Rfam assigns this 99-nucleotide RNA sequence from Moschus moschiferus to the family "Vault RNA". It scores 86 bits against the family's covariance model. The organism belongs to Moschus, within Eukaryota. The base pairs follow the family's consensus structure, which is taken from published work. Rfam describes the family as follows. This family of RNAs are found as part of the enigmatic vault ribonucleoprotein complex. For this family Rfam cites "Evolution of Vault RNAs" (Stadler et al., Mol Biol Evol, 2009).
RNA sequence: GGGCUGGCCGUAGCUCAGCGGUUCCUUCGGCUACAUCAUAAUUAAAUCACCCUCUUUCUGAGGGUGGUUCGAGACCCGCGGGCGCUCUCCAGUCCUUUU
Numbered sequence: 001g002g003g004c005u006g007g008c009c010g011u012a013g014c015u016c017a018g019c020g021g022u023u024c025c026u027u028c029g030g031c032u033a034c035a036u037c038a039u040a041a042u043u044a045a046a047u048c049a050c051c052c053u054c055u056u057u058c059u060g061a062g063g064g065u066g067g068u069u070c071g072a073g074a075c076c077c078g079c080g081g082g083c084g085c086u087c088u089c090c091a092g093u094c095c096u097u098u099u
Stems, first nucleotide, its partner, number of pairs: 002094006013083004018079004026073005